[Rfam]
RNA sequence: UUGACUCUGUCGAUCCGAAGGCUUGCGUUCCUACGAGAGCUCCUUUGUAGGUGAGAUGGGGCCAU
Numbered sequence: 001u002u003g004a005c006u007c008u009g010u011c012g013a014u015c016c017g018a019a020g021g022c023u024u025g026c027g028u029u030c031c032u033a034c035g036a037g038a039g040c041u042c043c044u045u046u047g048u049a050g051g052u053g054a055g056a057u058g059g060g061g062c063c064a065u
Stems, first nucleotide, its partner, number of pairs: 002064002005061007015051002020041005026035003